Rfam assigns this 54-nucleotide sequence from Anguilla anguilla to the family "UnaL2 LINE 3' element". The source organism's lineage runs through Eukaryota, Opisthokonta, Craniata, Anguillidae and Anguilla. A search with the family's covariance model found it, with a score of 57 bits. Rfam describes the family as follows. The eel long interspersed element (LINE) UnaL2 and its partner short interspersed element (SINE) share a conserved 3' tail containing a stem-loop that is critical for their retrotransposition. Presumably, the first step of retrotransposition is the recognition of their 3' tails by UnaL2-encoded reverse transcriptase. The solution structure of a 17-nucleotide RNA derived from the 3' tail of UnaL2 was determined by NMR.
[Rfam]
Nucleotides: 054
Base pairs, nucleotide, nucleotide: 013043014041015040016039020036021035022034023033024032025031
Number, partner (000 for none) and nucleotide at each position: 001000c002000c003000u004000a005000u006000u007000a008000c009000a010000c011000c012000u013043u014041g015040u016039a017000c018000g019000u020036c021035g022034c023033u024032c025031u026000g027000g028000a029000u030000a031025a032024g033023a034022g035021c036020g037000u038000c039016u040015g041014c042000c043013a044000a045000a046000u047000g048000c049000c050000u051000g052000u053000a054000a